[Rfam]
RNA sequence: AUCUGGCUUAGUUAAGAGGCAGAGAGUGAUGGAUCAUUUAUUAUUGAUCUUCUCAGGCCUUUUGAGGGGAUGUUUAGCACUUUUCAAUCUAUUGUCCUCCAAGCAGCCUUGGACAUUU
Dot-bracket structure: ...((.(((......))).))..........(((((........)))))..((.((((..((((.(((((((.(................).)))))))))))..)))).))......
Numbered sequence: 001a002u003c004u005g006g007c008u009u010a011g012u013u014a015a016g017a018g019g020c021a022g023a024g025a026g027u028g029a030u031g032g033a034u035c036a037u038u039u040a041u042u043a044u045u046g047a048u049c050u051u052c053u054c055a056g057g058c059c060u061u062u063u064g065a066g067g068g069g070a071u072g073u074u075u076a077g078c079a080c081u082u083u084u085c086a087a088u089c090u091a092u093u094g095u096c097c098u099c100c101a102a103g104c105a106g107c108c109u110u111g112g113a114c115a116u117u118u
Stems, first nucleotide, its partner, number of pairs: 004021002007018003032049005052112002055109004061103004066099007074091001